RNA sequence: UUACCACUCUGGCCUUUUGGCUUAGAUCAAGUGUAGUAUCUGUUCUUUAUAGAUUAACCUCUAUAAUGACGUCAUAGACGUCUAUUUUUGGUUAUCUAAUUUUUGUCGCCCCCGUUCUUUGGGCUCUGCUUGCAACCCAAGGACACGAUGACCUUGCCAUUGCAGUACCGGCUUGUGUCGUCAGGGGAA
Numbered sequence: 001u002u003a004c005c006a007c008u009c010u011g012g013c014c015u016u017u018u019g020g021c022u023u024a025g026a027u028c029a030a031g032u033g034u035a036g037u038a039u040c041u042g043u044u045c046u047u048u049a050u051a052g053a054u055u056a057a058c059c060u061c062u063a064u065a066a067u068g069a070c071g072u073c074a075u076a077g078a079c080g081u082c083u084a085u086u087u088u089u090g091g092u093u094a095u096c097u098a099a100u101u102u103u104u105g106u107c108g109c110c111c112c113c114g115u116u117c118u119u120u121g122g123g124c125u126c127u128g129c130u131u132g133c134a135a136c137c138c139a140a141g142g143a144c145a146c147g148a149u150g151a152c153c154u155u156g157c158c159a160u161u162g163c164a165g166u167a168c169c170g171g172c173u174u175g176u177g178u179c180g181u182c183a184g185g186g187g188a189a
Base pairs, nucleotide, nucleotide: 008026009025010024011022012021013020014019047066048065049064050063051062052061068082069081070080071079072078073077114144115143116142117141118140119139121137127134128133147182148181149180150179151178152177153175156172157171158170

Annotation: U2 spliceosomal RNA: a 189-nucleotide sequence from Dendrothele bispora. Pairs were carried over by alignment from the consensus structure, which is taken from published work. Rfam 15.1 lists 71,512 matches to the family in 2,642 species. The match comes from Rfam's covariance-model search (123 bits). Rfam classes the family as a spliceosomal small nuclear RNA. From the family's description: U2 is a small nuclear RNA (snRNA) component of the spliceosome (involved in pre-mRNA splicing). Complementary binding between U2 snRNA (in an area lying towards the 5' end but 3' to hairpin I) and the branchpoint sequence (BPS) of the intron results the bulging out of an unpaired adenosine, on the BPS, which initiates a nucleophilic attack at the intronic 5' splice site, thus starting the first of two transesterification reactions that mediate splicing. Taxonomically the source falls in Dendrothele bispora (Eukaryota, Fungi, Agaricomycetes, Dendrothele). Its Rfam clan is "U2 clan".